[Rfam]
RNA sequence: CUCCACUCAAGUGGAGACUUAUGCGGAAUCAACCGCGUAGCGAGUAGAACUCGCAUUAGGCUCUGAACAAGGAGAAAACAAAAUG
Numbered sequence: 001c002u003c004c005a006c007u008c009a010a011g012u013g014g015a016g017a018c019u020u021a022u023g024c025g026g027a028a029u030c031a032a033c034c035g036c037g038u039a040g041c042g043a044g045u046a047g048a049a050c051u052c053g054c055a056u057u058a059g060g061c062u063c064u065g066a067a068c069a070a071g072g073a074g075a076a077a078a079c080a081a082a083a084u085g
Base pairs, nucleotide, nucleotide: 001016002015003014004013005012006011020039021038022037023036024035025034026033040054041053042052043051
RNA: freshwater-2 RNA